[Rfam]
RNA: Purine riboswitch aptamer
RNA sequence: CUUAAUUUAUAGCUUAACCUUCGUAUAACCCCAGCAAUAGGGCUGGGGGUCUCUACCAGGUGACCGGAAUCACCUGACUACGAAGGGGAAAAUCCUUUUC
Numbered sequence: 001c002u003u004a005a006u007u008u009a010u011a012g013c014u015u016a017a018c019c020u021u022c023g024u025a026u027a028a029c030c031c032c033a034g035c036a037a038u039a040g041g042g043c044u045g046g047g048g049g050u051c052u053c054u055a056c057c058a059g060g061u062g063a064c065c066g067g068a069a070u071c072a073c074c075u076g077a078c079u080a081c082g083a084a085g086g087g088g089a090a091a092a093u094c095c096u097u098u099u100c
Stems, first nucleotide, its partner, number of pairs: 018086008029048007057076007
Dot-bracket structure: .................((((((((...(((((((......)))))))........(((((((......)))))))..))))))))..............